Record summary
This 50-nucleotide RNA sequence from Kutzneria viridogrisea belongs to the Rfam family "L31-Actinobacteria ribosomal protein leader". Pairs were carried over by alignment from the consensus structure, which is taken from published work. The family's RNA type in Rfam is cis-regulatory leader. NCBI's taxonomy places the organism under Bacteria, Pseudonocardiales, Pseudonocardiaceae, Kutzneria, Kutzneria viridogrisea.
[Rfam]
RNA sequence: CCGGCUCCGGUUCACCCCGCGCACGACAGCACGGCGGGGACCCGGCGGCC
Numbered sequence: 001c002c003g004g005c006u007c008c009g010g011u012u013c014a015c016c017c018c019g020c021g022c023a024c025g026a027c028a029g030c031a032c033g034g035c036g037g038g039g040a041c042c043c044g045g046c047g048g049c050c
Stems, first nucleotide, its partner, number of pairs: 003050003007045004015039006